[Rfam]
RNA sequence: UUCCAACAGUGAGCACAAAGUGAACUAUUCUUUUACCUUUUACUAAAGAAUACUGUGUGCUCGCUGCACACAGUGGCAUACGCCAAUUUUUGGAGGAUUUUUCAAUAUUGAAAAGCC
Numbered sequence: 001u002u003c004c005a006a007c008a009g010u011g012a013g014c015a016c017a018a019a020g021u022g023a024a025c026u027a028u029u030c031u032u033u034u035a036c037c038u039u040u041u042a043c044u045a046a047a048g049a050a051u052a053c054u055g056u057g058u059g060c061u062c063g064c065u066g067c068a069c070a071c072a073g074u075g076g077c078a079u080a081c082g083c084c085a086a087u088u089u090u091u092g093g094a095g096g097a098u099u100u101u102u103c104a105a106u107a108u109u110g111a112a113a114a115g116c117c
Stems, first nucleotide, its partner, number of pairs: 003076003007066011026052008096116001098114004
A member of the RNA family "U5 spliceosomal RNA" from Coptis chinensis, 117 nucleotides long. NCBI's taxonomy places the organism under Eukaryota, Viridiplantae, Mesangiospermae, Ranunculaceae, Coptis. Rfam's curators write: U5 RNA is a component of both types of known spliceosome. The match comes from Rfam's covariance-model search (76 bits).